[Rfam]
RNA sequence: UGACGGGGACCCGCACAAGCGGUGGAGCAUGUGGUUUAAUUCGAAGCAACGCGAAGAACCUUACCAGGUCUUGACAUCCUUUGACCACUCCAGAGAUGGAGCUUUCCCUUCGGGGACAAAGUGACAGGUGGUGCAUGGUUGUCGUCAGCUCGUGUCGUGAGAUGUUGGGUUAAGUCCCGCAACGAGCGCAACCCUUAUUGUUAGUUGCCAGCAUUUAGUUGGGCACUCUAGCAAGACUGCCGGUGACAAACCGGAGGAAGGCGGGGAUGACGUCAAAUCAUCAUGCCCCUUAUGACCUGGGCUACACACGUGCUACAAUGGCAAGUACAACGAGCAGCCAACCCGCGAGGGUGCGCAAAUCUCUUAAAGCUUGUCUCAGUUCGGACUGUAGGCUGCAACUCGCCUACACGAAGUCGGAAUCGCUAGUAAUCGCGGAUCAGCACGCCGCGGUGAAUACGUUCCCGGGUCUUGUACACACCGCCCGUCACACCAUGAGAGUUUGUAACACCCAAAGUCGGUGAGGUAACCUUUAUAGGGGCCAGCCGCCUAAGGUGGGACAGAUGAUUAGGGUGAAGUCGUAACAAGG
Numbered sequence: 001u002g003a004c005g006g007g008g009a010c011c012c013g014c015a016c017a018a019g020c021g022g023u024g025g026a027g028c029a030u031g032u033g034g035u036u037u038a039a040u041u042c043g044a045a046g047c048a049a050c051g052c053g054a055a056g057a058a059c060c061u062u063a064c065c066a067g068g069u070c071u072u073g074a075c076a077u078c079c080u081u082u083g084a085c086c087a088c089u090c091c092a093g094a095g096a097u098g099g100a101g102c103u104u105u106c107c108c109u110u111c112g113g114g115g116a117c118a119a120a121g122u123g124a125c126a127g128g129u130g131g132u133g134c135a136u137g138g139u140u141g142u143c144g145u146c147a148g149c150u151c152g153u154g155u156c157g158u159g160a161g162a163u164g165u166u167g168g169g170u171u172a173a174g175u176c177c178c179g180c181a182a183c184g185a186g187c188g189c190a191a192c193c194c195u196u197a198u199u200g201u202u203a204g205u206u207g208c209c210a211g212c213a214u215u216u217a218g219u220u221g222g223g224c225a226c227u228c229u230a231g232c233a234a235g236a237c238u239g240c241c242g243g244u245g246a247c248a249a250a251c252c253g254g255a256g257g258a259a260g261g262c263g264g265g266g267a268u269g270a271c272g273u274c275a276a277a278u279c280a281u282c283a284u285g286c287c288c289c290u291u292a293u294g295a296c297c298u299g300g301g302c303u304a305c306a307c308a309c310g311u312g313c314u315a316c317a318a319u320g321g322c323a324a325g326u327a328c329a330a331c332g333a334g335c336a337g338c339c340a341a342c343c344c345g346c347g348a349g350g351g352u353g354c355g356c357a358a359a360u361c362u363c364u365u366a367a368a369g370c371u372u373g374u375c376u377c378a379g380u381u382c383g384g385a386c387u388g389u390a391g392g393c394u395g396c397a398a399c400u401c402g403c404c405u406a407c408a409c410g411a412a413g414u415c416g417g418a419a420u421c422g423c424u425a426g427u428a429a430u431c432g433c434g435g436a437u438c439a440g441c442a443c444g445c446c447g448c449g450g451u452g453a454a455u456a457c458g459u460u461c462c463c464g465g466g467u468c469u470u471g472u473a474c475a476c477a478c479c480g481c482c483c484g485u486c487a488c489a490c491c492a493u494g495a496g497a498g499u500u501u502g503u504a505a506c507a508c509c510c511a512a513a514g515u516c517g518g519u520g521a522g523g524u525a526a527c528c529u530u531u532a533u534a535g536g537g538g539c540c541a542g543c544c545g546c547c548u549a550a551g552g553u554g555g556g557a558c559a560g561a562u563g564a565u566u567a568g569g570g571u572g573a574a575g576u577c578g579u580a581a582c583a584a585g586g
Stems, first nucleotide, its partner, number of pairs: 001475002003472003007469007015459002019423005024316001026314008034305002040055004064300007077124002079121005088101005105116004127289002130287004136283002138278003141274001143272002148187006154163003166179004193266004198234007208223002212221002237257002240254005320375007332363003337356002342351003382413001387408007429451007478585001480582001483578002488572004493567003498562006506554004514547001516545004522540003527536002